[Rfam]
Nucleotides: 114
Base pairs, nucleotide, nucleotide: 006113007112008111009110011023012022014020025108026107027106028105029104030103035099036098037097038096041070042069043068044067045066046065047064071086072085075084
Number, partner (000 for none) and nucleotide at each position: 001000g002000c003000a004000u005000g006113c007112c008111g009110g010000g011023u012022g013000a014020c015000a016000a017000c018000c019000g020014g021000c022012c023011g024000c025108a026107a027106u028105g029104g030103g031000g032000a033000a034000c035099g036098g037097c038096g039000g040000a041070c042069g043068c044067a045066g046065c047064u048000g049000a050000u051000u052000u053000u054000g055000c056000c057000g058000g059000u060000u061000u062000c063000u064047g065046g066045c067044u068043g069042c070041g071086a072085c073000a074000u075084c076000a077000a078000c079000g080000u081000a082000u083000u084075g085072g086071u087000g088000c089000g090000c091000g092000c093000u094000g095000a096038c097037g098036c099035c100000u101000a102000a103030c104029c105028u106027g107026u108025u109000c110009c111008c112007g113006g114000c

The family of this 114-nucleotide RNA from Bradyrhizobium sp. ORS 278 is "Rhizobiales sRNA Atu_At1". The family's consensus secondary structure was predicted with CMfinder. On this family, see Wilms et al., RNA Biol 2012: "Deep sequencing uncovers numerous small RNAs on all four replicons of the plant pathogen Agrobacterium tumefaciens". NCBI's taxonomy places the organism under Bacteria, Pseudomonadota, Alphaproteobacteria, Nitrobacteraceae, Bradyrhizobium. The family's RNA type in Rfam is small RNA.